[Rfam]
RNA sequence: CUGUGCCCGGCUGCAAGAAUGCUUUUUUUAAAAAAAAUUUCCAUCUGGCAGGACACACAGUAGUCUCUCUCUCAGUUUAGGAGGGUCGUCCUAAGAAUAGGACUCACUCUUAAAGGCACAAGAGGGACCA
Dot-bracket structure: (((..(............(((.((...(......)))....)))..).)))................(((((..((((..((((((.((((((....))))))..))))))..))))...))))).....
The record is a 130-nucleotide RNA from Rhinopithecus roxellana, which matches "Small Cajal body specific RNA 11" in Rfam. Rfam 15.1 lists 853 matches to the family in 557 species. Rfam's curators write: scaRNAs are a specific class of small nuclear RNAs which localise to the Cajal bodies and guide the modification of RNA polymerase II transcribed spliceosomal RNAs U1, U2, U4, U5 and U12. The base pairs follow the family's consensus structure, which was predicted with RNAalifold. A search with the family's covariance model found it, with a score of 67 bits. Its family is annotated with nucleolus, RNA processing and Cajal body in the Gene Ontology. The literature on the family includes a 2002 paper in EMBO J by Darzacq et al., "Cajal body-specific small nuclear RNAs: a novel class of 2'-O-methylation and pseudouridylation guide RNAs".